This 58-nucleotide RNA from Streptomyces zhaozhouensis belongs to the Rfam family "msiK RNA". NCBI's taxonomy places the organism under Bacteria, Actinomycetota, Kitasatosporales, Streptomycetaceae, Streptomyces. The family's RNA type in Rfam is cis-regulatory element.
RNA sequence: CGUUACACCUUCCUACUCGGAUCGUCCGGCACGUUCCUGCCGGUAGAAGGAGACAACA
Number, nucleotide and partner (000 for none) at each position: 001c000002g000003u000004u000005a000006c000007a000008c000009c050010u049011u048012c000013c046014u045015a044016c000017u000018c000019g000020g000021a000022u000023c000024g000025u000026c043027c042028g041029g040030c039031a038032c000033g000034u000035u000036c000037c000038u031039g030040c029041c028042g027043g026044u015045a014046g013047a000048a011049g010050g009051a000052g000053a000054c000055a000056a000057c000058a000